Notes:
The record is a 32-nucleotide sequence from Mytilus galloprovincialis, which matches "Iron response element II" in Rfam. A reference for the family is Koeller et al. (1989), "A cytosolic protein binds to structural elements within the iron regulatory region of the transferrin receptor mRNA", Proc Natl Acad Sci U S A. Taxonomically the source falls in Mytilus (Eukaryota, Opisthokonta, Autobranchia, Mytilidae). The family's RNA type in Rfam is cis-regulatory element. IRE, TFRC, SLC40A1, SDHB, SLC11A2, CDC42BPA, ACO2, ALAS2_H.SAPIENS, CDC14A, EPAS1, ALAS2, qoxD, Hao1, NDUFS1, transferrin, Aconitate. Pairs were carried over by alignment from the consensus structure, which is taken from published work. A search with the family's covariance model found it, with a score of 31 bits.
RNA sequence: AUGUUAUCAUUAACAGUGUUUCAAUAUAAUUA
Numbered sequence: 001a002u003g004u005u006a007u008c009a010u011u012a013a014c015a016g017u018g019u020u021u022c023a024a025u026a027u028a029a030u031u032a
Stems, first nucleotide, its partner, number of pairs: 003030005009025003012021002014018001